[Rfam]
RNA sequence: GGUUAUAUUACCCAAGAUUGAGGUAACUGAAUGCUCCAGCCCAGUAUUCAUUAAGUUUCUGUGGCUUGAAGUGAAAUUUUGGGACGCUCUGCAAAAGCGGAGCAAC
Numbered sequence: 001g002g003u004u005a006u007a008u009u010a011c012c013c014a015a016g017a018u019u020g021a022g023g024u025a026a027c028u029g030a031a032u033g034c035u036c037c038a039g040c041c042c043a044g045u046a047u048u049c050a051u052u053a054a055g056u057u058u059c060u061g062u063g064g065c066u067u068g069a070a071g072u073g074a075a076a077u078u079u080u081g082g083g084a085c086g087c088u089c090u091g092c093a094a095a096a097g098c099g100g101a102g103c104a105a106c
Stems, first nucleotide, its partner, number of pairs: 003031002008026005034071002037068001039065003086103007
Dot-bracket structure: ..((...(((((.........)))))...))..((.(.(((.....................)))..).))..............(((((((....)))))))...
The record is a 106-nucleotide RNA from Gongylonema pulchrum, which matches "SL1 RNA" in Rfam. This family represents the SL1 RNA. SL1 is commonly located in the spacer region between 5S-rRNA genes where it is involved in trans-splicing. Trans-splicing is a form of RNA processing. The family's consensus secondary structure is taken from published work. Taxonomically the source falls in Gongylonema (Eukaryota, Bilateria, Nematoda, Chromadorea). It scores 84 bits against the family's covariance model.